[Rfam]
This 37-nucleotide RNA from Roseospira visakhapatnamensis belongs to the Rfam family "CRISPR RNA direct repeat element".
Its family is annotated with defense response in the Gene Ontology.
Lineage of the source: Bacteria > Pseudomonadati > Pseudomonadota > Rhodospirillaceae > Roseospira.
RNA sequence: UUUUUCCGGGGCUAUCGUGCCCCGGCCACAUUGAAGC
Numbered sequence: 001u002u003u004u005u006c007c008g009g010g011g012c013u014a015u016c017g018u019g020c021c022c023c024g025g026c027c028a029c030a031u032u033g034a035a036g037c
Base pairs, nucleotide, nucleotide: 006025007024008023009022010021011020012019